[Rfam]
RNA sequence: ACGGCCGAUGCGGGAGAGUCCGGCGCCUCGGCGGCCGGACACCGAAGGAGCAAUCCUCCCCGACAAUCUCUCAGGUACUCGUACCGCAUCGGACUG
Numbered sequence: 001a002c003g004g005c006c007g008a009u010g011c012g013g014g015a016g017a018g019u020c021c022g023g024c025g026c027c028u029c030g031g032c033g034g035c036c037g038g039a040c041a042c043c044g045a046a047g048g049a050g051c052a053a054u055c056c057u058c059c060c061c062g063a064c065a066a067u068c069u070c071u072c073a074g075g076u077a078c079u080c081g082u083a084c085c086g087c088a089u090c091g092g093a094c095u096g
Base pairs, nucleotide, nucleotide: 006091007090008089009088010087011086012085013084020038021037022036023035041076042075043074044072045071048070049069050068054063055062
Dot-bracket structure: .....((((((((......((((...........))))..(((((..(((...((......))....))))).))).......)))))))).....
The record is a 96-nucleotide RNA sequence from Cryobacterium sp. MDB2-A-2, which matches "Glycine riboswitch aptamer" in Rfam.
The organism belongs to Cryobacterium, within Bacteria.
The base pairs follow the family's consensus structure.
The match comes from Rfam's covariance-model search (65 bits).
Its Rfam clan is "Glycine riboswitch clan".
This family represents the bacterial glycine riboswitch.